[Rfam]
RNA sequence: GGCCCAAAUUUGAACUAGAGUAGAUUAGUAUGGUCAGCUGAUCCUACUGUUCUACUCUAUUUCAAGUUUGCGUCC
Number, nucleotide and partner (000 for none) at each position: 001g074002g073003c072004c000005c070006a069007a068008a067009u066010u000011u064012g063013a062014a061015c000016u059017a058018g057019a056020g055021u054022a053023g052024a000025u000026u049027a048028g047029u046030a045031u000032g043033g042034u041035c040036a000037g000038c000039u000040g035041a034042u033043c032044c000045u030046a029047c028048u027049g026050u000051u000052c023053u022054a021055c020056u019057c018058u017059a016060u000061u014062u013063c012064a011065a000066g009067u008068u007069u006070g005071c000072g003073u002074c001075c000
About this RNA:
This 75-nucleotide RNA from Haemonchus placei belongs to the Rfam family "mir-5928 microRNA precursor family". The family's consensus secondary structure was predicted with RNAalifold. Its family is annotated with RISC complex and miRNA-mediated post-transcriptional gene silencing in the Gene Ontology. A search with the family's covariance model found it, with a score of 77 bits. Rfam 15.1 lists 1,672 matches to the family in 12 species. NCBI's taxonomy places the organism under Eukaryota, Ecdysozoa, Rhabditomorpha, Trichostrongylidae, Haemonchus.